Record summary: The family of this 83-nucleotide RNA sequence from Anisodus acutangulus is "Small nucleolar RNA Z43". Gene Ontology terms of the family: RNA processing and nucleolus. Rfam classes the family as a C/D-box small nucleolar RNA.
RNA sequence: GGACAAUGACGACUUGUAUCAAUUGGUCUCGUUCGUCGUAAUGGUGUUUAAAUUCACCUUGACGACCAUACCCAACUGAGUCU
Numbered sequence: 001g002g003a004c005a006a007u008g009a010c011g012a013c014u015u016g017u018a019u020c021a022a023u024u025g026g027u028c029u030c031g032u033u034c035g036u037c038g039u040a041a042u043g044g045u046g047u048u049u050a051a052a053u054u055c056a057c058c059u060u061g062a063c064g065a066c067c068a069u070a071c072c073c074a075a076c077u078g079a080g081u082c083u
Stems, first nucleotide, its partner, number of pairs: 001083004046060001
Dot-bracket structure: ((((.........................................(.............)...................))))